[Rfam]
A member of the RNA family "mir-790 microRNA precursor family" from Caenorhabditis brenneri, 62 nucleotides long. For this family Rfam cites "Repertoire and evolution of miRNA genes in four divergent nematode species" (de Wit et al., Genome Res, 2009).
RNA sequence: CUUGGCACUCGCGAACACCGCGAUCUAACUGUAUAAAUCGCGGCGUUAGCUCGUGGCAAACA
Numbered sequence: 001c002u003u004g005g006c007a008c009u010c011g012c013g014a015a016c017a018c019c020g021c022g023a024u025c026u027a028a029c030u031g032u033a034u035a036a037a038u039c040g041c042g043g044c045g046u047u048a049g050c051u052c053g054u055g056g057c058a059a060a061c062a
Stems, first nucleotide, its partner, number of pairs: 002059003006055003011050002014047003018043006